[Rfam]
Nucleotides: 193
Stems, first nucleotide, its partner, number of pairs: 013179008023169007036156001061135002064132003070126004078118001
Number, partner (000 for none) and nucleotide at each position: 001000u002000u003000g004000c005000a006000a007000a008000c009000g010000a011000a012000g013179g014178a015177g016176c017175u018174c019173u020172c021000u022000u023169c024168a025167g026166u027165c028164c029163a030000g031000u032000c033000c034000g035000a036156g037000a038000c039000a040000g041000u042000u043000g044000a045000g046000a047000g048000g049000a050000c051000u052000a053000a054000u055000a056000c057000u058000u059000g060000g061135c062134u063000g064132c065131u066130g067000a068000c069000u070126c071125g072124u073123u074000g075000g076000u077000u078118c079000g080000a081000a082000a083000g084000c085000u086000c087000a088000u089000c090000g091000a092000u093000c094000a095000g096000g097000g098000a099000a100000c101000u102000a103000u104000g105000g106000u107000g108000a109000u110000g111000u112000g113000u114000u115000u116000g117000u118078g119000a120000u121000c122000g123073a124072a125071c126070g127000a128000u129000g130066c131065a132064g133000g134062a135061g136000c137000u138000g139000c140000g141000u142000u143000u144000g145000g146000u147000u148000c149000u150000a151000u152000c153000u154000g155000u156036c157000g158000u159000g160000u161000c162000u163029u164028g165027g166026a167025c168024u169023g170000a171000a172020g173019g174018g175017a176016g177015c178014u179013c180000c181000c182000u183000c184000u185000u186000a187000g188000u189000a190000u191000u192000a193000a